[Rfam]
RNA sequence: GCCUCGCCAACGCUGCGUUUCUCUGUACCCACACAGACACUGCUUGCAGUCGUCCCACCCUGCAGAUGAGAAAUUCGGAGUAAUCUUCAACUUUUGUGCUUCGGCACUACUGCCCGUAAGGGCCUGGCGUGACUCACGUCUGUACUCGGCAUCAGAAAGCUCAGGGCCCAAGAAGCUGCGCGCAGAAAUGUGAGCAGUGGAUAUGGUUUCCCUAUGGGAGUCAGUGCGAAGAUUGUGUGCUCUGCGGAGUGACACUGUAGUACAAUACGCAGCGUGCCUGACUUCGAGUAGCUUCGGCGAAAGAGGAAGGGUAUCAUUCGAUUCUGAUUACUCUGGCGAGGC
Numbered sequence: 001g002c003c004u005c006g007c008c009a010a011c012g013c014u015g016c017g018u019u020u021c022u023c024u025g026u027a028c029c030c031a032c033a034c035a036g037a038c039a040c041u042g043c044u045u046g047c048a049g050u051c052g053u054c055c056c057a058c059c060c061u062g063c064a065g066a067u068g069a070g071a072a073a074u075u076c077g078g079a080g081u082a083a084u085c086u087u088c089a090a091c092u093u094u095u096g097u098g099c100u101u102c103g104g105c106a107c108u109a110c111u112g113c114c115c116g117u118a119a120g121g122g123c124c125u126g127g128c129g130u131g132a133c134u135c136a137c138g139u140c141u142g143u144a145c146u147c148g149g150c151a152u153c154a155g156a157a158a159g160c161u162c163a164g165g166g167c168c169c170a171a172g173a174a175g176c177u178g179c180g181c182g183c184a185g186a187a188a189u190g191u192g193a194g195c196a197g198u199g200g201a202u203a204u205g206g207u208u209u210c211c212c213u214a215u216g217g218g219a220g221u222c223a224g225u226g227c228g229a230a231g232a233u234u235g236u237g238u239g240c241u242c243u244g245c246g247g248a249g250u251g252a253c254a255c256u257g258u259a260g261u262a263c264a265a266u267a268c269g270c271a272g273c274g275u276g277c278c279u280g281a282c283u284u285c286g287a288g289u290a291g292c293u294u295c296g297g298c299g300a301a302a303g304a305g306g307a308a309g310g311g312u313a314u315c316a317u318u319c320g321a322u323u324c325u326g327a328u329u330a331c332u333c334u335g336g337c338g339a340g341g342c
Stems, first nucleotide, its partner, number of pairs: 001342004007336003012273007022066004036054003039050003076326005085231004112123004126140005142227005148221001164213003274314006
RNA: Nuclear RNase P